[Rfam]
RNA sequence: GGGCGGGUUCCAGAGCGGCCAAAUGGGCGUGGCUGUAAACCACGUGGCUUUAUGCCUUCGGGGGUUCGAAUCCCUCCCCGCCCA
Numbered sequence: 001g002g003g004c005g006g007g008u009u010c011c012a013g014a015g016c017g018g019c020c021a022a023a024u025g026g027g028c029g030u031g032g033c034u035g036u037a038a039a040c041c042a043c044g045u046g047g048c049u050u051u052a053u054g055c056c057u058u059c060g061g062g063g064g065u066u067c068g069a070a071u072c073c074c075u076c077c078c079c080g081c082c083c084a
Base pairs, nucleotide, nucleotide: 001083002082003081004080005079006078007077010026011025012024028044029043030042031041032040060076061075062074063073064072
Dot-bracket structure: (((((((..(((...........))).(((((.......)))))...............(((((.......)))))))))))).